The record is a 134-nucleotide RNA from Actinospica robiniae, which matches "SAM riboswitch aptamer (S box leader)" in Rfam. The match comes from Rfam's covariance-model search (71 bits). Taxonomically the source falls in Actinospica robiniae (Bacteria, Bacillati, Actinomycetes, Catenulisporales). The family's consensus secondary structure is taken from published work.
[Rfam]
RNA sequence: AGCUCAUCCAGAGGAGCAGAGGGUACGGCCCGACGAAGCUCCGGCAACCGCCCAGGACCCCCCGCAUUCGCGAGGCCCGGCCUGGGAGCAGGUGCCAAAUCCGGCCCGUCGACAGUCGGCGGGGAAGAUGAGGG
Number, nucleotide and partner (000 for none) at each position: 001a000002g000003c132004u131005c130006a129007u128008c127009c000010a000011g000012a000013g042014g041015a040016g039017c038018a000019g000020a000021g031022g030023g029024u000025a000026c103027g102028g101029c023030c022031c021032g000033a000034c000035g000036a000037a000038g017039c016040u015041c014042c013043g096044g095045c094046a093047a000048c092049c091050g089051c088052c000053c086054a000055g000056g000057a000058c000059c000060c000061c000062c000063c000064g000065c000066a000067u000068u000069c000070g000071c000072g000073a000074g000075g000076c000077c000078c000079g000080g000081c000082c000083u000084g000085g000086g053087a000088g051089c050090a000091g049092g048093u046094g045095c044096c043097a000098a000099a000100u126101c028102c027103g026104g000105c123106c122107c121108g120109u119110c118111g000112a000113c000114a000115g000116u000117c000118g110119g109120c108121g107122g106123g105124g000125a000126a100127g008128a007129u006130g005131a004132g003133g000134g000